RNA sequence: AUAGUCAGUCAGCCUAAUCUGUUGUUUCGUCAGCAAUGAUGACGAAAUAAAGAGCGGAGGAACCAAAUCUUGGGGCGAAUUUUCCAAAAGGCAAAUGCCUUCUGGAGGAAGGGCACCUCUCAGCCCUAGCCCGUCAGCUAACUCCGUCGGCAUUGAGGGGAGACUGA
Numbered sequence: 001a002u003a004g005u006c007a008g009u010c011a012g013c014c015u016a017a018u019c020u021g022u023u024g025u026u027u028c029g030u031c032a033g034c035a036a037u038g039a040u041g042a043c044g045a046a047a048u049a050a051a052g053a054g055c056g057g058a059g060g061a062a063c064c065a066a067a068u069c070u071u072g073g074g075g076c077g078a079a080u081u082u083u084c085c086a087a088a089a090g091g092c093a094a095a096u097g098c099c100u101u102c103u104g105g106a107g108g109a110a111g112g113g114c115a116c117c118u119c120u121c122a123g124c125c126c127u128a129g130c131c132c133g134u135c136a137g138c139u140a141a142c143u144c145c146g147u148c149g150g151c152a153u154u155g156a157g158g159g160g161a162g163a164c165u166g167a
Base pairs, nucleotide, nucleotide: 012151013150014149018053019052020051054147055146056145057144058143059142064072065071073132074131075130081108082107083106084105085104086103111126112125113124114123
RNA: c-di-AMP riboswitch aptamer (ydaO/yuaA leader)